[Rfam]
Nucleotides: 109
Base pairs, nucleotide, nucleotide: 004108006106007105008104009103010102011101013099014098016096017095018094019093020092021091022090023089024088025087026086027085028084029083030082031081032080035077036076037075039073040072041071042070043069045067046066047065
Number, partner (000 for none) and nucleotide at each position: 001000g002000c003000a004108u005000a006106u007105g008104u009103a010102u011101c012000a013099a014098u015000c016096u017095c018094a019093a020092u021091u022090c023089a024088c025087a026086u027085g028084u029083g030082u031081u032080g033000a034000a035077g036076u037075g038000a039073a040072u041071u042070g043069g044000a045067g046066u047065g048000g049000a050000a051000a052000u053000u054000a055000a056000a057000c058000u059000a060000a061000g062000u063000u064000c065047c066046a067045u068000u069043u070042c071041a072040a073039u074000c075037u076036a077035c078000u079000c080032c081031a082030a083029c084028a085027c086026a087025u088024g089023u090022g091021g092020a093019u094018u095017g096016a097000a098014g099013u100000g101011g102010a103009u104008a105007c106006a107000c108004a109000u